[Rfam]
RNA sequence: CCACGAGAAAGGCAAACCAGUCGCAAGACUGGGGCGCAAAGCCAAAGCCCACCUUUGUUUGGUGGGAAGACCGGCUGCCACA
Numbered sequence: 001c002c003a004c005g006a007g008a009a010a011g012g013c014a015a016a017c018c019a020g021u022c023g024c025a026a027g028a029c030u031g032g033g034g035c036g037c038a039a040a041g042c043c044a045a046a047g048c049c050c051a052c053c054u055u056u057g058u059u060u061g062g063u064g065g066g067a068a069g070a071c072c073g074g075c076u077g078c079c080a081c082a
Stems, first nucleotide, its partner, number of pairs: 012037002017032006040076004048066006
The record is an 82-nucleotide sequence from Botrimarina hoheduenensis, which matches "c-di-GMP-I riboswitch aptamer" in Rfam. Pairs were carried over by alignment from the consensus structure, which is taken from published work. The source organism's lineage runs through Bacteria, Pseudomonadati, Planctomycetia, Pirellulales and Botrimarina. Rfam describes the family as follows. GEMM was predicted in a large-scale screen for bacterial structured RNA regulatory elements. A search with the family's covariance model found it, with a score of 53 bits.